A member of the RNA family "Small nucleolar RNA snoR100" from Rhododendron williamsianum, 108 nucleotides long.
Pairs were carried over by alignment from the consensus structure, which was predicted with WAR.
The literature on the family includes a 2002 paper in Curr Biol by Marker et al., "Experimental RNomics: identification of 140 candidates for small non-messenger RNAs in the plant Arabidopsis thaliana".
RNA sequence: CAAUGAAGGAAGCAUGGUAAUGUGCACAUAAAUUAAAUUGAGUCUUUAGGCAUGCCCUCUUUGAUGCUAUUUGGCUUUGAUUAGUGGGCAUGGUCUGGCGGCAAAACA
Numbered sequence: 001c002a003a004u005g006a007a008g009g010a011a012g013c014a015u016g017g018u019a020a021u022g023u024g025c026a027c028a029u030a031a032a033u034u035a036a037a038u039u040g041a042g043u044c045u046u047u048a049g050g051c052a053u054g055c056c057c058u059c060u061u062u063g064a065u066g067c068u069a070u071u072u073g074g075c076u077u078u079g080a081u082u083a084g085u086g087g088g089c090a091u092g093g094u095c096u097g098g099c100g101g102c103a104a105a106a107c108a
Stems, first nucleotide, its partner, number of pairs: 012025004040091001042089003050081001054075003
A search with the family's covariance model found it, with a score of 77 bits. NCBI's taxonomy places the organism under Eukaryota, Streptophytina, Embryophyta, Ericales, Rhododendron. Its family is annotated with RNA processing and nucleolus in the Gene Ontology.